Background: This 97-nucleotide sequence from Palleronia sediminis belongs to the Rfam family "Bacterial small signal recognition particle RNA".

Nucleotides: 097
Base pairs, nucleotide, nucleotide: 004091005090006089007088008087009084012081013080014079017075018074019073020072021071022070024066025065026064027063034059035058036057037056042051043050044049
Number, partner (000 for none) and nucleotide at each position: 001000g002000a003000g004091a005090g006089g007088u008087u009084g010000g011000c012081g013080c014079g015000g016000g017075c018074a019073g020072g021071c022070g023000c024066c025065u026064c027063g028000c029000c030000a031000a032000c033000c034059c035058g036057g037056u038000c039000a040000g041000g042051u043050c044049c045000g046000g047000a048000a049044g050043g051042a052000a053000g054000c055000a056037g057036c058035c059034g060000u061000a062000a063027c064026g065025a066024g067000c068000c069000a070022c071021g072020c073019u074018u075017g076000g077000g078000u079014c080013g081012u082000u083000g084009u085000c086000c087008a088007g089006c090005c091004u092000c093000u094000c095000a096000c097000c

About this RNA: By type it is a non-coding RNA gene. From the family's description: The signal recognition particle (SRP) is a universally conserved ribonucleoprotein involved in the co-translational targeting of proteins to membranes. The base pairs follow the family's consensus structure, which is taken from published work. A reference for the family is Rosenblad et al. (2003), "SRPDB: Signal Recognition Particle Database", Nucleic Acids Res.